A member of the RNA family "Fungal signal recognition particle RNA" from Westerdykella ornata, 268 nucleotides long.
The literature on the family includes a 2002 paper in Curr Opin Struct Biol by Wild et al., "Towards the structure of the mammalian signal recognition particle".
Taxonomically the source falls in Westerdykella (Eukaryota, Ascomycota, saccharomyceta, Pleosporales).
Clan: SRP clan.
The base pairs follow the family's consensus structure, which is taken from published work.
[Rfam]
RNA sequence: ACCUGUAAUGGGUCUCCAUCAGAAGGUGCACCGUAAUCCAUACGAUCAUCUCCUCUUGCAUAGCCCCCGCUGAGAGCCCAGUUCGAGUCCGGUGGUGUCCGAUUUCCCACUCAUUUAGGUAACUAAUGAUGCUGGGCGGACCUAAGCAAUGAAUACUACUGUCGAGGGAAGCAAUUCUGCAGACGCGUAUUCACCAUUGGGCGGCGGCGCUGGAAUACUCUUGCGGGGGUUGGAGGUGGUUAUAUGGGCUGGUGUAUCGACUGAUAUU
Numbered sequence: 001a002c003c004u005g006u007a008a009u010g011g012g013u014c015u016c017c018a019u020c021a022g023a024a025g026g027u028g029c030a031c032c033g034u035a036a037u038c039c040a041u042a043c044g045a046u047c048a049u050c051u052c053c054u055c056u057u058g059c060a061u062a063g064c065c066c067c068c069g070c071u072g073a074g075a076g077c078c079c080a081g082u083u084c085g086a087g088u089c090c091g092g093u094g095g096u097g098u099c100c101g102a103u104u105u106c107c108c109a110c111u112c113a114u115u116u117a118g119g120u121a122a123c124u125a126a127u128g129a130u131g132c133u134g135g136g137c138g139g140a141c142c143u144a145a146g147c148a149a150u151g152a153a154u155a156c157u158a159c160u161g162u163c164g165a166g167g168g169a170a171g172c173a174a175u176u177c178u179g180c181a182g183a184c185g186c187g188u189a190u191u192c193a194c195c196a197u198u199g200g201g202c203g204g205c206g207g208c209g210c211u212g213g214a215a216u217a218c219u220c221u222u223g224c225g226g227g228g229g230u231u232g233g234a235g236g237u238g239g240u241u242a243u244a245u246g247g248g249c250u251g252g253u254g255u256a257u258c259g260a261c262u263g264a265u266a267u268u
Stems, first nucleotide, its partner, number of pairs: 001013003018265005026257006036250001037248006044241010065229003068225002071223006078213005083207003087202009103138001106136002108131001111129005117124002142146001150193007160185004168177003